[Rfam]
RNA sequence: GACUACAGCCAGUUUUGCAGGAUUGCAUUCCAGCUUAUUUCAAAUGCUGUGCAAAUCCAUGCAAAACUGACUGUGGUU
Number, nucleotide and partner (000 for none) at each position: 001g000002a000003c076004u075005a074006c073007a072008g071009c000010c069011a068012g067013u066014u065015u064016u063017g062018c061019a060020g058021g057022a000023u054024u053025g052026c051027a050028u049029u000030c000031c000032a048033g047034c046035u000036u000037a000038u000039u000040u000041c000042a000043a000044a000045u000046g034047c033048u032049g028050u027051g026052c025053a024054a023055a000056u000057c021058c020059a000060u019061g018062c017063a016064a015065a014066a013067c012068u011069g010070a000071c008072u007073g006074u005075g004076g003077u000078u000
A member of the RNA family "mir-19 microRNA precursor family" from Pelodiscus sinensis, 78 nucleotides long.
Rfam links the family to the GO terms miRNA-mediated post-transcriptional gene silencing and RISC complex.
It scores 76 bits against the family's covariance model.
The family is grouped with related families in Rfam's "mir-19 clan".